[Rfam]
Nucleotides: 160
Base pairs, nucleotide, nucleotide: 006151011146012145013144015142016141019067020066022064026060027059028058029057033054034053035052036051070098071097072096073095074094101126102125103124104123105122106121107120109118110117111116127137128136
Number, partner (000 for none) and nucleotide at each position: 001000g002000c003000a004000c005000u006151u007000u008000a009000u010000a011146g012145a013144c014000u015142c016141c017000g018000a019067g020066c021000u022064u023000g024000u025000c026060u027059u028058c029057c030000u031000a032000a033054g034053u035052c036051a037000a038000a039000u040000u041000c042000u043000c044000c045000a046000g047000a048000a049000a050000a051036u052035g053034a054033u055000a056000u057029g058028g059027a060026a061000a062000c063000a064022a065000u066020g067019c068000c069000a070098g071097a072096a073095u074094c075000c076000g077000c078000u079000a080000a081000c082000u083000a084000a085000u086000c087000a088000a089000a090000a091000g092000a093000g094074g095073a096072u097071u098070c099000c100000a101126u102125g103124g104123a105122u106121a107120g108000c109118u110117g111116a112000g113000a114000a115000a116111u117110u118109a119000a120107c121106u122105g123104u124103c125102c126101a127137c128136u129000c130000g131000u132000a133000u134000u135000u136128a137127g138000a139000a140000a141016g142015g143000u144013g145012u146011c147000a148000a149000a150000u151006g152000c153000a154000a155000a156000c157000u158000a159000u160000c